Shown here is a 43-nucleotide RNA sequence from Brenthis ino, a member of the family "Coronavirus 3' stem-loop II-like motif (s2m)". Its Rfam clan is "Coronavirus 3' UTR".
RNA sequence: CAAGACCGCGGCCACGGCGAGUAGCAUCGAGGGUACAGUCAAA
Numbered sequence: 001c002a003a004g005a006c007c008g009c010g011g012c013c014a015c016g017g018c019g020a021g022u023a024g025c026a027u028c029g030a031g032g033g034u035a036c037a038g039u040c041a042a043a
Stems, first nucleotide, its partner, number of pairs: 004040003011034003015029002017025002
Record summary
Rfam's curators write: The s2m motif is found in the 3' UTRs of astrovirus, coronavirus and equine rhinovirus genomes. On this family, see Jonassen et al., J Gen Virol 1998: "A common RNA motif in the 3' end of the genomes of astroviruses, avian infectious bronchitis virus and an equine rhinovirus". Lineage of the source: Eukaryota > Pancrustacea > Hexapoda > Eumetabola > Brenthis.